[Rfam]
RNA sequence: AGAUUUUCUGUUGUGCUUGAUCUAACCAUGUGGUUGCCAGGUAUGAGUAAAACAUGGUUCCGUCAAGCACCAUGGAACGUCA
Dot-bracket structure: .(((.((((...(((((((....((((((((....................))))))))....)))))))...)))).))).
RNA: mir-218 microRNA precursor family
Organism: Lemur catta